[Rfam]
The record is a 164-nucleotide sequence from Streptomyces apricus, which matches "c-di-AMP riboswitch aptamer (ydaO/yuaA leader)" in Rfam. The organism belongs to Streptomyces, within Bacteria. The match comes from Rfam's covariance-model search (56 bits).
Nucleotides: 164
Base pairs, nucleotide, nucleotide: 011151013149014148019033020032035146036145037144038143039142040141045084085131086130087129093108094107095106096105111125112124113123114122
Number, partner (000 for none) and nucleotide at each position: 001000g002000g003000a004000a005000u006000c007000c008000c009000c010000a011151c012000a013149c014148c015000g016000a017000c018000a019033c020032c021000c022000g023000u024000a025000c026000a027000c028000g029000g030000c031000a032020g033019g034000a035146g036145c037144g038143g039142g040141g041000g042000a043000c044000c045084c046000a047000c048000a049000g050000g051000u052000a053000c054000c055000a056000c057000g058000c059000c060000u061000g062000u063000u064000c065000c066000g067000g068000u069000c070000u071000c072000c073000g074000g075000a076000a077000c078000g079000g080000g081000c082000u083000c084045g085131g086130g087129g088000u089000c090000a091000a092000g093108u094107c095106g096105c097000g098000c099000g100000a101000c102000a103000g104000c105096g106095c107094g108093g109000c110000c111125g112124g113123g114122c115000a116000u117000c118000u119000c120000c121000a122114g123113c124112c125111c126000g127000c128000a129087c130086c131085c132000g133000a134000c135000a136000g137000c138000u139000c140000a141040c142039c143038u144037c145036g146035c147000a148014g149013g150000c151011g152000c153000c154000g155000g156000a157000g158000a159000g160000g161000a162000a163000u164000u